[Rfam]
This 71-nucleotide RNA sequence from Bicyclus anynana belongs to the Rfam family "mir-278 microRNA precursor family". It scores 58 bits against the family's covariance model. The source organism's lineage runs through Eukaryota, Neolepidoptera, Ditrysia, Nymphalidae and Bicyclus. The literature on the family includes a 2007 paper in Genome Res by Ruby et al., "Evolution, biogenesis, expression, and target predictions of a substantially expanded set of Drosophila microRNAs".
RNA sequence: GCUACGCCCGGACGAACUUCCCAUGUGCGGCCGAUAUACGCGGGUCGGUGGGAUCUUCGUCCGUUUGUAUC
Number, nucleotide and partner (000 for none) at each position: 001g000002c000003u069004a068005c067006g066007c000008c000009c063010g062011g061012a060013c059014g058015a057016a000017c000018u000019u053020c052021c051022c050023a049024u000025g000026u000027g000028c047029g046030g045031c044032c043033g000034a000035u000036a000037u000038a000039c000040g000041c000042g000043g032044g031045u030046c029047g028048g000049u023050g022051g021052g020053a019054u000055c000056u000057u015058c014059g013060u012061c011062c010063g009064u000065u000066u006067g005068u004069a003070u000071c000